Rfam assigns this 142-nucleotide RNA from Vibrio nigripulchritudo to the family "Molybdenum/Tungsten riboswitch aptamer (Moco RNA motif)".
RNA sequence: UGGCUGCCAUAGCUCCGAGCUUUCACUGCUAAGUUCGCAACAUGCGGAUAUGAAGUGUCAGCCAGUGACGUUUUGUCACAAGGGUUUGUUUGGAAAUGAGCAAGCCUCCCGUGUUUGGAAAGGUGUUCCGUGGCGCAACAAU
Numbered sequence: 001u002g003g004c005u006g007c008c009a010u011a012g013c014u015c016c017g018a019g020c021u022u023u024c025a026c027u028g029c030u031a032a033g034u035u036c037g038c039a040a041c042a043u044g045c046g047g048a049u050a051u052g053a054a055g056u057g058u059c060a061g062c063c064a065g066u067g068a069c070g071u072u073u074u075g076u077c078a079c080a081a082g083g084g085u086u087u088g089u090u091u092g093g094a095a096a097u098g099a100g101c102a103a104g105c106c107u108c109c110c111g112u113g114u115u116u117g118g119a120a121a122g123g124u125g126u127u128c129c130g131u132g133g134c135g136c137a138a139c140a141a142u
Base pairs, nucleotide, nucleotide: 003136004135011127012126013125015123016122019062020061021060024057025056026055027054029052033049034048035047036046037045038044065079066078067077068076069075082107083106084105085104086103087102088101089100090099091098092097108118109117
The organism belongs to Vibrio, within Bacteria.